[Rfam]
RNA sequence: ACGACCUUACUUGAACAGGAUCUGUUCUAUAGGAUCGUACCGCUGCAUCCUUGACUAAUAAGGAGGCAAGCACUUAAGCCUGGUUGAUGAGUCAUGACCUGUGGGCCAGAGCGUGAUUAACGGCCAGGAUUAAGCUUGAUGCUGGGUCUGGUGCUGUAGAGGAUCGUUCCUGGUUGGGUCCUGCCUAGCUGGGGUGGCCCAUGGGUUGUCUGACAGGC
Numbered sequence: 001a002c003g004a005c006c007u008u009a010c011u012u013g014a015a016c017a018g019g020a021u022c023u024g025u026u027c028u029a030u031a032g033g034a035u036c037g038u039a040c041c042g043c044u045g046c047a048u049c050c051u052u053g054a055c056u057a058a059u060a061a062g063g064a065g066g067c068a069a070g071c072a073c074u075u076a077a078g079c080c081u082g083g084u085u086g087a088u089g090a091g092u093c094a095u096g097a098c099c100u101g102u103g104g105g106c107c108a109g110a111g112c113g114u115g116a117u118u119a120a121c122g123g124c125c126a127g128g129a130u131u132a133a134g135c136u137u138g139a140u141g142c143u144g145g146g147u148c149u150g151g152u153g154c155u156g157u158a159g160a161g162g163a164u165c166g167u168u169c170c171u172g173g174u175u176g177g178g179u180c181c182u183g184c185c186u187a188g189c190u191g192g193g194g195u196g197g198c199c200c201a202u203g204g205g206u207u208g209u210c211u212g213a214c215a216g217g218c
Stems, first nucleotide, its partner, number of pairs: 001038002003035001005033003013027006044068003048064006078218005097206012110168004120157005127149005133143003170192010

Plant small nucleolar RNA U3: a 218-nucleotide RNA from Sorghum bicolor. Its family is annotated with RNA processing and nucleolus in the Gene Ontology. The base pairs follow the family's consensus structure, which is taken from published work. About the family: Small nucleolar RNAs (snoRNAs) are involved in the processing and modification of rRNA in the nucleolus. By type it is a C/D-box small nucleolar RNA. It is one of the family's seed sequences. Rfam 15.1 lists 3,759 matches to the family in 258 species.